RNA: Small nucleolar RNA SNORA8
Organism: Drymodes brunneopygia
RNA sequence: UGCAGUGUUACAGUACCUGCACCCAGCAGCCUUUUCCUGGUGGGAUGUUCAAAAAGCAGUGCUACAGUGAUGCAGCAUUCAGCAUCCUUGGUUUUCAUUCUGCUGUCUCUGUUAAACCUGGUAUUUUUGCUGAAAACAGUC
Numbered sequence: 001u002g003c004a005g006u007g008u009u010a011c012a013g014u015a016c017c018u019g020c021a022c023c024c025a026g027c028a029g030c031c032u033u034u035u036c037c038u039g040g041u042g043g044g045a046u047g048u049u050c051a052a053a054a055a056g057c058a059g060u061g062c063u064a065c066a067g068u069g070a071u072g073c074a075g076c077a078u079u080c081a082g083c084a085u086c087c088u089u090g091g092u093u094u095u096c097a098u099u100c101u102g103c104u105g106u107c108u109c110u111g112u113u114a115a116a117c118c119u120g121g122u123a124u125u126u127u128u129g130c131u132g133a134a135a136a137c138a139g140u141c
Base pairs, nucleotide, nucleotide: 002062003061004060006058007057018053019048020047021046023044024043025041027039028038029037065129066128067127069125070124071123073120074119075118082108084106085105
Dot-bracket structure: .(((.((..........((((.(((.(((.......))).).)).)))....)...)).)))..(((.(((.(((......(.((...................)).).........)))..))).)))............